Shown here is a 118-nucleotide sequence from Oncorhynchus mykiss, a member of the family "Small nucleolar RNA SNORA17". A reference for the family is Ofengand and Bakin (1997), "Mapping to nucleotide resolution of pseudouridine residues in large subunit ribosomal RNAs from representative eukaryotes, prokaryotes, archaebacteria, mitochondria and chloroplasts", J Mol Biol. Its Rfam clan is "SNORA17 clan". Rfam describes the family as follows. snoRNA ACA 17 belongs to the H/ACA family of snoRNAs and is predicted to guide pseudouridylation of the 28S rRNA at positions U4659 and U4598. It shares the same host gene together with ACA43. NB This family has a high threshold value to exclude a large number of closely related sequences that do not appear to have conserved H and ACA boxes, and may be pseudogenes. Rfam classes the family as an H/ACA-box small nucleolar RNA. NCBI's taxonomy places the organism under Eukaryota, Vertebrata, Actinopterygii, Teleostei, Oncorhynchus.

RNA sequence: GCUGCCCCUUGAAGCAUUGUAGUCUGACUGAAAGUGUCGAGCAUGUGUCAUGAGGGGCGGAGAGUGACAGGUCUACGCCGAGGACCCAGAACAAUGGGAACUUGGCGUGAUUGGCUAG
Numbered sequence: 001g002c003u004g005c006c007c008c009u010u011g012a013a014g015c016a017u018u019g020u021a022g023u024c025u026g027a028c029u030g031a032a033a034g035u036g037u038c039g040a041g042c043a044u045g046u047g048u049c050a051u052g053a054g055g056g057g058c059g060g061a062g063a064g065u066g067a068c069a070g071g072u073c074u075a076c077g078c079c080g081a082g083g084a085c086c087c088a089g090a091a092c093a094a095u096g097g098g099a100a101c102u103u104g105g106c107g108u109g110a111u112u113g114g115c116u117a118g
Stems, first nucleotide, its partner, number of pairs: 002060010014048002019046003024041001025039004068118001069112001075108003079104004085098003